[Rfam]
RNA sequence: CCCGCUGAACUACUCGCACCUUAUACCGGCGAUAUCGUCGCCGAAGGCGUCAGUAAAACCCUGCGCGGCGGCGCGCAUUUCCUGCUGCGCGGCUUUCAGCGCCAGCAGCGCUACGUUGCCGAAGCGCUCACCGAAGAGUGGCGCAUGGCGCCCGGUCCGCUUGAGGUGGCCUGGUUUGCCGAAGAGAGCGCCGCCAUUGCGCGCGACGUUGACGCGCUGGCCAGGCGACUGGAAAAACUGGAGGGCAAAUGA
Numbered sequence: 001c002c003c004g005c006u007g008a009a010c011u012a013c014u015c016g017c018a019c020c021u022u023a024u025a026c027c028g029g030c031g032a033u034a035u036c037g038u039c040g041c042c043g044a045a046g047g048c049g050u051c052a053g054u055a056a057a058a059c060c061c062u063g064c065g066c067g068g069c070g071g072c073g074c075g076c077a078u079u080u081c082c083u084g085c086u087g088c089g090c091g092g093c094u095u096u097c098a099g100c101g102c103c104a105g106c107a108g109c110g111c112u113a114c115g116u117u118g119c120c121g122a123a124g125c126g127c128u129c130a131c132c133g134a135a136g137a138g139u140g141g142c143g144c145a146u147g148g149c150g151c152c153c154g155g156u157c158c159g160c161u162u163g164a165g166g167u168g169g170c171c172u173g174g175u176u177u178g179c180c181g182a183a184g185a186g187a188g189c190g191c192c193g194c195c196a197u198u199g200c201g202c203g204c205g206a207c208g209u210u211g212a213c214g215c216g217c218u219g220g221c222c223a224g225g226c227g228a229c230u231g232g233a234a235a236a237a238c239u240g241g242a243g244g245g246c247a248a249a250u251g252a
Base pairs, nucleotide, nucleotide: 001244002243005240007081008080009079011077012054013053014052016050019047020046021045022044027040028039029038030037031036062075063074064073065072066071084215085214088211089210090208091207093205095203099144100143101142102141103140104139115128117126118125119124148179149178150177152174153173154172155171157169158168159167160166161165186198187197190194217231219229222227
The family of this 252-nucleotide sequence from Pluralibacter gergoviae is "Erse small RNA". NCBI's taxonomy places the organism under Bacteria, Pseudomonadati, Enterobacterales, Enterobacteriaceae, Pluralibacter. For this family Rfam cites "Esre: a novel essential non-coding RNA in Escherichia coli" (Chen et al., FEBS Lett, 2012).